[Rfam]
A member of the RNA family "Small nucleolar RNA U2-30" from Gulo gulo, 70 nucleotides long.
RNA sequence: GAUCAAUGAUUAAAAGGUUUUACUACACACUUUUAUAACUAUGAGGGUUUCUACACUUUAUCUGAGACUA
Numbered sequence: 001g002a003u004c005a006a007u008g009a010u011u012a013a014a015a016g017g018u019u020u021u022a023c024u025a026c027a028c029a030c031u032u033u034u035a036u037a038a039c040u041a042u043g044a045g046g047g048u049u050u051c052u053a054c055a056c057u058u059u060a061u062c063u064g065a066g067a068c069u070a
Base pairs, nucleotide, nucleotide: 001069003067004066013034014033015032016031017030018029
Its family is annotated with nucleolus and RNA processing in the Gene Ontology. Taxonomically the source falls in Gulo (Eukaryota, Chordata, Carnivora, Caniformia). The family has 21 seed sequences and 664 matches in Rfam 15.1. By type it is a C/D-box small nucleolar RNA. The base pairs follow the family's consensus structure, which is taken from published work.